[Rfam]
RNA: TPP riboswitch aptamer (THI element)
Organism: Paenibacillus sp. FSL R5-0912
RNA sequence: AACGAUCACUAGGGGUGCCGCAAGGCUGAGACGAACAUAUCUGUUCGGACCCUUUGAACCUGAUCUGGUUUAUACCAGCGUAGGGAAGUGGAGAAUGAAUAAU
Numbered sequence: 001a002a003c004g005a006u007c008a009c010u011a012g013g014g015g016u017g018c019c020g021c022a023a024g025g026c027u028g029a030g031a032c033g034a035a036c037a038u039a040u041c042u043g044u045u046c047g048g049a050c051c052c053u054u055u056g057a058a059c060c061u062g063a064u065c066u067g068g069u070u071u072a073u074a075c076c077a078g079c080g081u082a083g084g085g086a087a088g089u090g091g092a093g094a095a096u097g098a099a100u101a102a103u
Stems, first nucleotide, its partner, number of pairs: 006091005011053004016047001017026003033046005059084004065078004